[Rfam]
RNA sequence: CCCUCCUAUAAAGGUGUGUCUGUGGUUGCCUGUUUUUGGACACGUAAGAAUUGGAGGCAAAGAAAUGUGGACUUGGGAAAGUCUGAGGCUAGCUUGCCGCUUGGAGCCUCGUGAGUAGCCAAUCUCACAGAA
Numbered sequence: 001c002c003c004u005c006c007u008a009u010a011a012a013g014g015u016g017u018g019u020c021u022g023u024g025g026u027u028g029c030c031u032g033u034u035u036u037u038g039g040a041c042a043c044g045u046a047a048g049a050a051u052u053g054g055a056g057g058c059a060a061a062g063a064a065a066u067g068u069g070g071a072c073u074u075g076g077g078a079a080a081g082u083c084u085g086a087g088g089c090u091a092g093c094u095u096g097c098c099g100c101u102u103g104g105a106g107c108c109u110c111g112u113g114a115g116u117a118g119c120c121a122a123u124c125u126c127a128c129a130g131a132a
Base pairs, nucleotide, nucleotide: 002057003056004055005054006053015044016043017042018041019040020039021038024030025029069125070124071123073121091109092108094106095105097103
Small nucleolar RNA SNORA38: a 132-nucleotide RNA sequence from Cebus imitator. Rfam 15.1 lists 628 matches to the family in 149 species. The source organism's lineage runs through Eukaryota, Vertebrata, Haplorrhini, Simiiformes and Cebus. The base pairs follow the family's consensus structure, which was predicted with RNAfold.